The family of this 135-nucleotide RNA from Anolis carolinensis is "Small nucleolar RNA SNORA44".

RNA sequence: CUGCAUGUUAAACCAAGAGCUGUGGCUUAGUAUGAUAGCCACAGGAUCUCCAACAGCAUGCGAGAACAAGAUGGGAGGGACUUUGACUUCUCAGGCUUUCCUUAGCUGCAGAUGUCACUCGCCUCUCCUACAAGC
Numbered sequence: 001c002u003g004c005a006u007g008u009u010a011a012a013c014c015a016a017g018a019g020c021u022g023u024g025g026c027u028u029a030g031u032a033u034g035a036u037a038g039c040c041a042c043a044g045g046a047u048c049u050c051c052a053a054c055a056g057c058a059u060g061c062g063a064g065a066a067c068a069a070g071a072u073g074g075g076a077g078g079g080a081c082u083u084u085g086a087c088u089u090c091u092c093a094g095g096c097u098u099u100c101c102u103u104a105g106c107u108g109c110a111g112a113u114g115u116c117a118c119u120c121g122c123c124u125c126u127c128c129u130a131c132a133a134g135c
Base pairs, nucleotide, nucleotide: 013044019039020038021037022036023035074128075127076126077125078124079123090114092108093107094106
Dot-bracket structure: ............(.....(((((...........)))))....).............................((((((..........(.(((...........))).....)........)))))).......
The base pairs follow the family's consensus structure, which was predicted with PFOLD. The match comes from Rfam's covariance-model search (80 bits). The family is grouped with related families in Rfam's "SNORA44 clan". Rfam's curators write: ACA44 is a member of the H/ACA class of snoRNA that guide the sites of modification of uridines to pseudouridines. The organism belongs to Anolis, within Eukaryota. On this family, see Huttenhofer et al., EMBO J 2001: "RNomics: an experimental approach that identifies 201 candidates for novel, small, non-messenger RNAs in mouse". The family has 27 seed sequences and 1,056 matches in Rfam 15.1. It is annotated as an H/ACA-box small nucleolar RNA.